[Rfam]
RNA sequence: GAAACCUCAUCUUCGAUCGUUCGCCAUCCGGGCAUCGAUCAGUGUUUCCAACACGGGCGUUCGCCCAGAUGAGGAGAAAGU
Numbered sequence: 001g002a003a004a005c006c007u008c009a010u011c012u013u014c015g016a017u018c019g020u021u022c023g024c025c026a027u028c029c030g031g032g033c034a035u036c037g038a039u040c041a042g043u044g045u046u047u048c049c050a051a052c053a054c055g056g057g058c059g060u061u062c063g064c065c066c067a068g069a070u071g072a073g074g075a076g077a078a079a080g081u
Stems, first nucleotide, its partner, number of pairs: 005074008016039003023033003042054004055066004

Shown here is an 81-nucleotide RNA sequence, a member of the family "RAGATH-10 RNA". Rfam's curators put it in the seed alignment.